[Rfam]
RNA sequence: CCGGGGGCUUACGCCCCCGGCUAACCAGUGUCGCCCCUUCGGGGCU
Numbered sequence: 001c002c003g004g005g006g007g008c009u010u011a012c013g014c015c016c017c018c019g020g021c022u023a024a025c026c027a028g029u030g031u032c033g034c035c036c037c038u039u040c041g042g043g044g045c046u
Base pairs, nucleotide, nucleotide: 001020002019003018004017005016006015007014008013033045034044035043036042037041